RNA sequence: CACGUGCCUCGUGACUCGGUGAAACUCCGAACCGGCGGUGAGAGCCCGCGACCCGGCCAUGGUGGUCGGUGAACUCUGGUGAGACCCCCAGGGCCGACGGUCAUAGUCCGGACGAGAGAGGCGCUGC
Numbered sequence: 001c002a003c004g005u006g007c008c009u010c011g012u013g014a015c016u017c018g019g020u021g022a023a024a025c026u027c028c029g030a031a032c033c034g035g036c037g038g039u040g041a042g043a044g045c046c047c048g049c050g051a052c053c054c055g056g057c058c059a060u061g062g063u064g065g066u067c068g069g070u071g072a073a074c075u076c077u078g079g080u081g082a083g084a085c086c087c088c089c090a091g092g093g094c095c096g097a098c099g100g101u102c103a104u105a106g107u108c109c110g111g112a113c114g115a116g117a118g119a120g121g122c123g124c125u126g127c
Stems, first nucleotide, its partner, number of pairs: 004124007017029003031107002033096002035049004044094002052071001054069001075092005098110003
FMN riboswitch aptamer (RFN element): a 127-nucleotide RNA sequence from Janibacter melonis. The source organism's lineage runs through Bacteria, Actinomycetes, Micrococcales, Intrasporangiaceae and Janibacter. The RFN element is a highly conserved domain that is found frequently in the 5'-untranslated regions of prokaryotic mRNAs that encode for flavin mononucleotide (FMN) biosynthesis and transport proteins. This element is a metabolite-dependent riboswitch that directly binds FMN in the absence of proteins. The family's consensus secondary structure is taken from published work.